This 153-nucleotide sequence from Amborella trichopoda belongs to the Rfam family "MIR8565 microRNA precursor family".
The family's consensus secondary structure was predicted with RNAalifold.
RNA sequence: CCCACACCCAUGUGUAUAGAACCCCAAAGGAUCACCAUUAAAUUUGGCACAGAUCUCUAAAAAAGUUAUCACAUGGAUGUAAGACUUACUUUUUUAAAGAUCUGUGCCAAGUUUAAUGGUGAUCCUUUGAGGUUCUAGAUACAUGGAUGUGGA
Numbered sequence: 001c002c003c004a005c006a007c008c009c010a011u012g013u014g015u016a017u018a019g020a021a022c023c024c025c026a027a028a029g030g031a032u033c034a035c036c037a038u039u040a041a042a043u044u045u046g047g048c049a050c051a052g053a054u055c056u057c058u059a060a061a062a063a064a065g066u067u068a069u070c071a072c073a074u075g076g077a078u079g080u081a082a083g084a085c086u087u088a089c090u091u092u093u094u095u096a097a098a099g100a101u102c103u104g105u106g107c108c109a110a111g112u113u114u115a116a117u118g119g120u121g122a123u124c125c126u127u128u129g130a131g132g133u134u135c136u137a138g139a140u141a142c143a144u145g146g147a148u149g150u151g152g153a
Base pairs, nucleotide, nucleotide: 002152003151004150005149006148008146009145010144011143012142013141015139017137018136019135020134021133022132023131025129026128027127028126030124031123032122034120035119036118037117038116039115040114041113042112043111044110045109046108047107048106049105050104051103052102053101054100055099056098058096059095060094061093062092063091064090065089066088068086069082071080072079073078